[Rfam]
RNA sequence: AGAUGUGAGGGCGAUCUGGCUGCGACAUCUGUCACCCUAUUGAUUGCUAGGGUUGAUUCGGCUGAUCUGGCUGGCUAGGCGGGUAUCCCCUUCCUCCCUCGCCGCUCCAUGCUCAUCCCUUCCGAAGCUAUGUGCUCGUUCAGAGGAUGACCUCCCGAUAGAAGAGGUACCGUUCUUCGGUCAAGGGUAUGCCAGUAGCUGUGCUCCCCUGCUAGAACCUCCAAACAAGCUCAAGGUCCAUUUGUAGGAGAACGUAGGGUAGUCAGCUCCAGGGCUGCAUAUAUCAGCUUGUCU
Numbered sequence: 001a002g003a004u005g006u007g008a009g010g011g012c013g014a015u016c017u018g019g020c021u022g023c024g025a026c027a028u029c030u031g032u033c034a035c036c037c038u039a040u041u042g043a044u045u046g047c048u049a050g051g052g053u054u055g056a057u058u059c060g061g062c063u064g065a066u067c068u069g070g071c072u073g074g075c076u077a078g079g080c081g082g083g084u085a086u087c088c089c090c091u092u093c094c095u096c097c098c099u100c101g102c103c104g105c106u107c108c109a110u111g112c113u114c115a116u117c118c119c120u121u122c123c124g125a126a127g128c129u130a131u132g133u134g135c136u137c138g139u140u141c142a143g144a145g146g147a148u149g150a151c152c153u154c155c156c157g158a159u160a161g162a163a164g165a166g167g168u169a170c171c172g173u174u175c176u177u178c179g180g181u182c183a184a185g186g187g188u189a190u191g192c193c194a195g196u197a198g199c200u201g202u203g204c205u206c207c208c209c210u211g212c213u214a215g216a217a218c219c220u221c222c223a224a225a226c227a228a229g230c231u232c233a234a235g236g237u238c239c240a241u242u243u244g245u246a247g248g249a250g251a252a253c254g255u256a257g258g259g260u261a262g263u264c265a266g267c268u269c270c271a272g273g274g275c276u277g278c279a280u281a282u283a284u285c286a287g288c289u290u291g292u293c294u
Stems, first nucleotide, its partner, number of pairs: 002107002005102007013093002018090002024087002027084007035074002037070003042067004046062003116167002118164001120162002123138003127135002140158002145155003198267003204262002207259006219250004225245005
Shown here is a 294-nucleotide RNA sequence from Geotrypetes seraphini, a member of the family "7SK RNA". It scores 258 bits against the family's covariance model. The family's RNA type in Rfam is non-coding RNA gene. 7SK was discovered as an abundant small nuclear RNA in the mid-70s but a possible function has only recently been suggested. Two independent studies have found that 7SK RNA binds the CDK9/cyclin T complex (known as elongation factor P-TEFb). The family is grouped with related families in Rfam's "7SK clan". Pairs were carried over by alignment from the consensus structure, which is taken from published work.